[Rfam]
RNA sequence: GCCGAGCUCAGCAGCGCGAGCUUGUAACCCGAGCGGGGGCAUUAAGGUGGUGUGGACGCUGCCGUAUGGCUGCGGGCCUGUGUCGGGUGUUGCUUUAUCGGCCCGCCCGUUCCAAGUUGGUAGUAGGCUUGGGAGACUUGGGCGAAAGCCCCGGGCCUCUCGGUCUCUAAAGUGGCAGACACCGCGUUAGGCUGGCUUAACAGAGCAGCGUCUACUGCCCGCUUCCAACGGUGGAAGGAUAACGGGCCGCCGCGCUCCCGGCACAAAAUAGACCUUGCAGCCUUCUCCAGCGAACCACCAUCUUU
Numbered sequence: 001g002c003c004g005a006g007c008u009c010a011g012c013a014g015c016g017c018g019a020g021c022u023u024g025u026a027a028c029c030c031g032a033g034c035g036g037g038g039g040c041a042u043u044a045a046g047g048u049g050g051u052g053u054g055g056a057c058g059c060u061g062c063c064g065u066a067u068g069g070c071u072g073c074g075g076g077c078c079u080g081u082g083u084c085g086g087g088u089g090u091u092g093c094u095u096u097a098u099c100g101g102c103c104c105g106c107c108c109g110u111u112c113c114a115a116g117u118u119g120g121u122a123g124u125a126g127g128c129u130u131g132g133g134a135g136a137c138u139u140g141g142g143c144g145a146a147a148g149c150c151c152c153g154g155g156c157c158u159c160u161c162g163g164u165c166u167c168u169a170a171a172g173u174g175g176c177a178g179a180c181a182c183c184g185c186g187u188u189a190g191g192c193u194g195g196c197u198u199a200a201c202a203g204a205g206c207a208g209c210g211u212c213u214a215c216u217g218c219c220c221g222c223u224u225c226c227a228a229c230g231g232u233g234g235a236a237g238g239a240u241a242a243c244g245g246g247c248c249g250c251c252g253c254g255c256u257c258c259c260g261g262c263a264c265a266a267a268a269u270a271g272a273c274c275u276u277g278c279a280g281c282c283u284u285c286u287c288c289a290g291c292g293a294a295c296c297a298c299c300a301u302c303u304u305u
Stems, first nucleotide, its partner, number of pairs: 001040003004023006028037003044304009054295001057292005064285001066283001068281001070280006076273001078271002080264008089256001091254002099249007107238002110236005116229005122223003126166002129163007137155004141150003167172001174219005184211004192203003